[Rfam]
RNA sequence: UAGUCAAGAUAUUGAGGCGUUCACCCUGAUAACAGGUUCUGAACGGGGAGCAUUCAAGCGCAGUGCAGAGCACAGAGCGCGCUCCUGUAACAACUCAACAUGAUAGCGCCCUGCUACACAAUAUCUGACU
Numbered sequence: 001u002a003g004u005c006a007a008g009a010u011a012u013u014g015a016g017g018c019g020u021u022c023a024c025c026c027u028g029a030u031a032a033c034a035g036g037u038u039c040u041g042a043a044c045g046g047g048g049a050g051c052a053u054u055c056a057a058g059c060g061c062a063g064u065g066c067a068g069a070g071c072a073c074a075g076a077g078c079g080c081g082c083u084c085c086u087g088u089a090a091c092a093a094c095u096c097a098a099c100a101u102g103a104u105a106g107c108g109c110c111c112u113g114c115u116a117c118a119c120a121a122u123a124u125c126u127g128a129c130u
Stems, first nucleotide, its partner, number of pairs: 002130004007126008018045006046086004058080004063073004
This 130-nucleotide RNA from Xenorhabdus innexi belongs to the Rfam family "EFASI RNA". Pairs were carried over by alignment from the consensus structure, which is taken from published work. By type it is a small RNA.